[Rfam]
RNA: Plastid-psbA-1 3UTR RNA
RNA sequence: UCAAAGUUCCAUCUACAAAUGGGUAAGACUUUUGUAAAUGAAUAAGGUUUUUGACUUUAAUGUGUACGGGCUUUUGGAAAAAAGAAAAGAAAAAAGGAGCAAUCGCCAAUUUCUUGUUCUAUCGAGAGGGUUGGCAUUGCUCCU
Dot-bracket structure: .......(.(((.........................))).)....................................................(((((((((....(..(((((........)))))..)....)))))))))